[Rfam]
RNA: Small nucleolar SNORD12/SNORD106
RNA sequence: GCUGGUAUAUAUGAUGACUGAACUUUUUUCCCCAUCAGAUCGACUCUGUUGAUCCUACUAUUCUUUGCCAGUUUUUUCUGAUAUACCAGC
Numbered sequence: 001g002c003u004g005g006u007a008u009a010u011a012u013g014a015u016g017a018c019u020g021a022a023c024u025u026u027u028u029u030c031c032c033c034a035u036c037a038g039a040u041c042g043a044c045u046c047u048g049u050u051g052a053u054c055c056u057a058c059u060a061u062u063c064u065u066u067g068c069c070a071g072u073u074u075u076u077u078c079u080g081a082u083a084u085a086c087c088a089g090c
Stems, first nucleotide, its partner, number of pairs: 001090009